The record is a 193-nucleotide sequence from Paenibacillus uliginis, which matches "Lysine riboswitch aptamer" in Rfam. A search with the family's covariance model found it, with a score of 114 bits.

RNA sequence: AGAUGAGGUAGAGGUUGCGAAUGUGAUUAGUAAACGUGCCGAGGUGAAGAGUCACCUAUGACGCACGCUUGAAAGGCAUUUUCGCCGAAGUGGACGGCUGUGCUCUUACACCGUCUGCUGGGUCCGAUCCCGAAAGGGACGGAACUGUCACGGGAGCCAAUCCUUACGCUUCCCGUGUUGUGCUAUCUUAAUG
Numbered sequence: 001a002g003a004u005g006a007g008g009u010a011g012a013g014g015u016u017g018c019g020a021a022u023g024u025g026a027u028u029a030g031u032a033a034a035c036g037u038g039c040c041g042a043g044g045u046g047a048a049g050a051g052u053c054a055c056c057u058a059u060g061a062c063g064c065a066c067g068c069u070u071g072a073a074a075g076g077c078a079u080u081u082u083c084g085c086c087g088a089a090g091u092g093g094a095c096g097g098c099u100g101u102g103c104u105c106u107u108a109c110a111c112c113g114u115c116u117g118c119u120g121g122g123u124c125c126g127a128u129c130c131c132g133a134a135a136g137g138g139a140c141g142g143a144a145c146u147g148u149c150a151c152g153g154g155a156g157c158c159a160a161u162c163c164u165u166a167c168g169c170u171u172c173c174c175g176u177g178u179u180g181u182g183c184u185a186u187c188u189u190a191a192u193g
Base pairs, nucleotide, nucleotide: 006188007187008186009185010184011183017085018084019083020082021081023079024078025077033070034069035067036066037065038064039063089119090118091117092116093115094114095113096112097111120146121145123143124142125141126140128138129137130136149177150176151175152174153173154172155171156170